[Rfam]
RNA: TPP riboswitch aptamer (THI element)
RNA sequence: GCAUACCACUAGGGGUGCCCACACGGGCUGAGACUCACCCUUAUUACCUGAUCUAGAUCAUACUAGCGUAGGGAAGUGGCAUAUAUUUAAG
Dot-bracket structure: .....(((((((((..((((....)))).........)))).....((((..((((......))))..))))..)))))............